[Rfam]
RNA sequence: AUUGGAAGUUUAAGGCCAUAGCAGAAGCACUCAUGGUGUGGUCCUGUCAGAUUCCAAUUAAUCUGCAAAUUCUGCU
Numbered sequence: 001a002u003u004g005g006a007a008g009u010u011u012a013a014g015g016c017c018a019u020a021g022c023a024g025a026a027g028c029a030c031u032c033a034u035g036g037u038g039u040g041g042u043c044c045u046g047u048c049a050g051a052u053u054c055c056a057a058u059u060a061a062u063c064u065g066c067a068a069a070u071u072c073u074g075c076u
Stems, first nucleotide, its partner, number of pairs: 014044001015042003020076007027039003048065006
Notes: Mammalian CPEB3 ribozyme: a 76-nucleotide RNA sequence from Alligator mississippiensis. Gene Ontology term of the family: RNA nuclease activity. Lineage of the source: Eukaryota > Tetrapoda > Sauropsida > Alligatoridae > Alligator.